[Rfam]
RNA sequence: GAUGCCGGAUUUGCCGGCACCACGGGUGCGGCCGCCCUGCUGCGCCUGUGCCGUUGGGGCAGAGAGAAAGCGGCUAUUUCUACGCUCAGUGCUCAGAACCAUGGGCACUAAGAAUGGUUUGUAGCCAAACAUCA
Numbered sequence: 001g002a003u004g005c006c007g008g009a010u011u012u013g014c015c016g017g018c019a020c021c022a023c024g025g026g027u028g029c030g031g032c033c034g035c036c037c038u039g040c041u042g043c044g045c046c047u048g049u050g051c052c053g054u055u056g057g058g059g060c061a062g063a064g065a066g067a068a069a070g071c072g073g074c075u076a077u078u079u080c081u082a083c084g085c086u087c088a089g090u091g092c093u094c095a096g097a098a099c100c101a102u103g104g105g106c107a108c109u110a111a112g113a114a115u116g117g118u119u120u121g122u123a124g125c126c127a128a129a130c131a132u133c134a
Base pairs, nucleotide, nucleotide: 003061004060005059006058007055008054022049023048024047025046072126073125074124080117081116082115085112086111090107091106092105093104094103095102